[Rfam]
RNA: Small nucleolar RNA ACA64
Organism: Rattus norvegicus
RNA sequence: GUUCGUUGAAAAUCAUCCUCGGCUUUGGCCUGUGGCCGGGGUUGAGAAUCGGCGCCCAGAGCCACAGAGGCCUCAGCUCACCCCCUGCUGCCCCAGUGUGGGAGGGUGAAACCCAGGCCCCUACAUUC
Numbered sequence: 001g002u003u004c005g006u007u008g009a010a011a012a013u014c015a016u017c018c019u020c021g022g023c024u025u026u027g028g029c030c031u032g033u034g035g036c037c038g039g040g041g042u043u044g045a046g047a048a049u050c051g052g053c054g055c056c057c058a059g060a061g062c063c064a065c066a067g068a069g070g071c072c073u074c075a076g077c078u079c080a081c082c083c084c085c086u087g088c089u090g091c092c093c094c095a096g097u098g099u100g101g102g103a104g105g106g107u108g109a110a111a112c113c114c115a116g117g118c119c120c121c122u123a124c125a126u127u128c
Stems, first nucleotide, its partner, number of pairs: 005053005013045003021037004067121001069119005078109005086100003